[Rfam]
RNA sequence: UCAGGGGCGCAAAAGUGCUUAUAGUGCAGGUAGCGUGUAGGCAUCUACUGCAGUGUCGGCACUUUAGUGCCACUAU
Numbered sequence: 001u002c003a004g005g006g007g008c009g010c011a012a013a014a015g016u017g018c019u020u021a022u023a024g025u026g027c028a029g030g031u032a033g034c035g036u037g038u039a040g041g042c043a044u045c046u047a048c049u050g051c052a053g054u055g056u057c058g059g060c061a062c063u064u065u066a067g068u069g070c071c072a073c074u075a076u
Base pairs, nucleotide, nucleotide: 004073006071007070009068010067013064014063015062016061017060018059019058021056022055023054025052026051027050029049030048031047032046033045